Shown here is a 147-nucleotide RNA from Jaculus jaculus, a member of the family "Small nucleolar RNA SNORA44".
A search with the family's covariance model found it, with a score of 58 bits.
ACA44 is a member of the H/ACA class of snoRNA that guide the sites of modification of uridines to pseudouridines.
The family's RNA type in Rfam is H/ACA-box small nucleolar RNA.
[Rfam]
RNA sequence: CAGUAUGGAAUCAAGUUUCCUGGAUAUCCAAGGCAUUGAACUUUUGGUUGGGAGUGAAUUAAAAUGAGUUUCUGCUCCAAGCCAGAAGGACUUUGACAGCUCAGGCCAGCACAGUACCUGCGGCUGCCUCUCGCCUUUCCUAUAAUG
Numbered sequence: 001c002a003g004u005a006u007g008g009a010a011u012c013a014a015g016u017u018u019c020c021u022g023g024a025u026a027u028c029c030a031a032g033g034c035a036u037u038g039a040a041c042u043u044u045u046g047g048u049u050g051g052g053a054g055u056g057a058a059u060u061a062a063a064a065u066g067a068g069u070u071u072c073u074g075c076u077c078c079a080a081g082c083c084a085g086a087a088g089g090a091c092u093u094u095g096a097c098a099g100c101u102c103a104g105g106c107c108a109g110c111a112c113a114g115u116a117c118c119u120g121c122g123g124c125u126g127c128c129u130c131u132c133g134c135c136u137u138u139c140c141u142a143u144a145a146u147g
Stems, first nucleotide, its partner, number of pairs: 011067002016063003085139005099127002102120004
Dot-bracket structure: ..........((...(((..........................................)))..)).................(((((.........((.((((...........)))).....)).......)))))........